[Rfam]
The record is a 152-nucleotide RNA from Cellulomonas composti, which matches "c-di-AMP riboswitch aptamer (ydaO/yuaA leader)" in Rfam. The source organism's lineage runs through Bacteria, Bacillati, Actinomycetes, Cellulomonadaceae and Cellulomonas. A search with the family's covariance model found it, with a score of 70 bits.
RNA sequence: CGCACGAAACCGCCGGCAGGGGCGGGGGAACCAAGAUGGGCACUUCGGUGUCCUUGGGGUGAAGCCUCAGAACGGACCUCGGUCCGUGAAGAGGCCGGGUGAUCUCCCACCCGAACCCGACAGCUCACCUCGUAGGCGUCAGGAGAGGCACG
Numbered sequence: 001c002g003c004a005c006g007a008a009a010c011c012g013c014c015g016g017c018a019g020g021g022g023c024g025g026g027g028g029a030a031c032c033a034a035g036a037u038g039g040g041c042a043c044u045u046c047g048g049u050g051u052c053c054u055u056g057g058g059g060u061g062a063a064g065c066c067u068c069a070g071a072a073c074g075g076a077c078c079u080c081g082g083u084c085c086g087u088g089a090a091g092a093g094g095c096c097g098g099g100u101g102a103u104c105u106c107c108c109a110c111c112c113g114a115a116c117c118c119g120a121c122a123g124c125u126c127a128c129c130u131c132g133u134a135g136g137c138g139u140c141a142g143g144a145g146a147g148g149c150a151c152g
Stems, first nucleotide, its partner, number of pairs: 001138003005135001010020002022133006032056004057118003065094004097112004